Shown here is a 128-nucleotide RNA sequence from Trichonephila inaurata, a member of the family "U11 spliceosomal RNA". The family is grouped with related families in Rfam's "U1 clan". It is annotated as a spliceosomal small nuclear RNA. The match comes from Rfam's covariance-model search (79 bits). NCBI's taxonomy places the organism under Eukaryota, Eumetazoa, Panarthropoda, Orbiculariae, Trichonephila inaurata.

RNA sequence: AAAAAGGGUGUCUGCUUGCUACAUGACACGCGGUUUAUUUGGGGCCGUGCGGAAUCGCUAUCAAGAGAUUCUGGACACGCAAUUUCUGGAUCCUGGAGCUGCUGAUUGCUUUAACUUUUGGCGCUCCU
Numbered sequence: 001a002a003a004a005a006g007g008g009u010g011u012c013u014g015c016u017u018g019c020u021a022c023a024u025g026a027c028a029c030g031c032g033g034u035u036u037a038u039u040u041g042g043g044g045c046c047g048u049g050c051g052g053a054a055u056c057g058c059u060a061u062c063a064a065g066a067g068a069u070u071c072u073g074g075a076c077a078c079g080c081a082a083u084u085u086c087u088g089g090a091u092c093c094u095g096g097a098g099c100u101g102c103u104g105a106u107u108g109c110u111u112u113a114a115c116u117u118u119u120g121g122c123g124c125u126c127c128u
Stems, first nucleotide, its partner, number of pairs: 008078005013028002016025001029049008050073007096126004101122005108116001110114001